A member of the RNA family "mir-14 microRNA precursor family" from Brenthis ino, 61 nucleotides long. Gene Ontology terms of the family: miRNA-mediated post-transcriptional gene silencing and RISC complex. On this family, see Li et al., BMC Genomics 2009: "Direct sequencing and expression analysis of a large number of miRNAs in Aedes aegypti and a multi-species survey of novel mosquito miRNAs". A search with the family's covariance model found it, with a score of 53 bits.

[Rfam]
RNA sequence: UGUGGUUGGGAGAAAUUGACUUGGCUUUGUCAUAUCAGUCAGUCUUUUUCUCUCUCCUAUA
Numbered sequence: 001u002g003u004g005g006u007u008g009g010g011a012g013a014a015a016u017u018g019a020c021u022u023g024g025c026u027u028u029g030u031c032a033u034a035u036c037a038g039u040c041a042g043u044c045u046u047u048u049u050c051u052c053u054c055u056c057c058u059a060u061a
Stems, first nucleotide, its partner, number of pairs: 001061005008054001010052004015047001018044004024039003
About this RNA: The organism belongs to Brenthis, within Eukaryota.